[Rfam]
RNA sequence: GUCCUCUUCAACGUCGCGCUUCCAUGCUACAAACAGCCAUCUUGCCUUCUGGUGAAAUGACAAUAUGCAUGUGAGAAAUUCGGAGAAGCUCUUCGGCCACCUGAUUUUUGAUCUCUUUCGAGGCAAGGCAGGUGGCACAACAGCACUCCCUCGCUUUCGAAGUGAAAGGACGUGUCUACCCGUGAGGGUCCAGCGCCAAUCGGCGCUCGCAUUGGUACAGAAAAACAGGGUCUCGCGGGUCCCAGGCUCGCUGUUCAUCAGAGAUUCCUAUGGAAACGCCGUGCGGAGAUUGUGGUUAUCACUGAAGUGCGAUGCGCGACGUGGCUCAGGCCAUACUUCGAUUCCGAUUAUUCUCUAGAGGAC
Number, nucleotide and partner (000 for none) at each position: 001g363002u362003c361004c360005u000006c000007u000008u000009c000010a354011a000012c000013g320014u319015c318016g317017c316018g315019c314020u000021u000022c000023c071024a070025u069026g068027c000028u000029a000030c000031a000032a000033a000034c000035a000036g061037c000038c000039a000040u000041c000042u000043u000044g000045c000046c000047u000048u000049c000050u000051g000052g000053u000054g000055a000056a000057a000058u000059g000060a000061c036062a000063a000064u000065a000066u000067g000068c026069a025070u024071g023072u000073g000074a000075g000076a000077a000078a000079u000080u000081c346082g345083g344084a343085g342086a000087a000088g000089c288090u287091c286092u285093u000094c000095g000096g000097c000098c000099a000100c000101c000102u000103g000104a000105u000106u000107u000108u000109u000110g000111a000112u000113c000114u000115c000116u000117u000118u000119c000120g000121a000122g000123g000124c000125a000126a000127g000128g000129c000130a000131g000132g000133u000134g000135g000136c000137a000138c000139a000140a000141c000142a000143g000144c000145a000146c000147u000148c000149c000150c000151u000152c000153g000154c000155u000156u000157u000158c000159g000160a000161a000162g000163u000164g000165a000166a000167a000168g000169g000170a000171c000172g000173u000174g000175u000176c000177u000178a189179c188180c187181c186182g000183u000184g000185a000186g181187g180188g179189u178190c000191c000192a207193g206194c205195g204196c203197c000198a000199a000200u000201c000202g000203g196204c195205g194206c193207u192208c000209g284210c283211a282212u281213u000214g279215g000216u000217a000218c000219a000220g000221a000222a000223a000224a000225a000226c000227a000228g269229g268230g267231u000232c000233u000234c000235g000236c000237g000238g000239g000240u000241c000242c000243c000244a000245g000246g000247c000248u000249c000250g000251c000252u000253g000254u000255u000256c000257a000258u000259c000260a000261g000262a000263g000264a000265u000266u000267c230268c229269u228270a000271u000272g000273g000274a000275a000276a000277c000278g000279c214280c000281g212282u211283g210284c209285g092286g091287a090288g089289a000290u000291u000292g000293u000294g000295g000296u000297u000298a000299u000300c000301a000302c000303u000304g000305a000306a000307g000308u000309g000310c000311g000312a000313u000314g019315c018316g017317c016318g015319a014320c013321g334322u333323g332324g331325c330326u000327c000328a000329g000330g325331c324332c323333a322334u321335a000336c000337u000338u000339c000340g000341a000342u085343u084344c083345c082346g081347a000348u000349u000350a000351u000352u000353c000354u010355c000356u000357a000358g000359a000360g004361g003362a002363c001

Background: Shown here is a 363-nucleotide RNA from Fusarium irregulare, a member of the family "Nuclear RNase P". The source organism's lineage runs through Eukaryota, Fungi, Sordariomycetes, Hypocreomycetidae and Fusarium incarnatum-equiseti species complex. It is annotated as a ribozyme. Pairs were carried over by alignment from the consensus structure, which is taken from published work. A reference for the family is Frank et al. (2000), "Phylogenetic-comparative analysis of the eukaryal ribonuclease P RNA", RNA. Rfam describes the family as follows. Ribonuclease P (RNase P) is a ubiquitous endoribonuclease, found in archaea, bacteria and eukarya as well as chloroplasts and mitochondria. Its best characterised activity is the generation of mature 5'-ends of tRNAs by cleaving the 5'-leader elements of precursor-tRNAs. Cellular RNase Ps are ribonucleoproteins. RNA from bacterial RNase Ps retains its catalytic activity in the absence of the protein subunit, i.e. it is a ribozyme.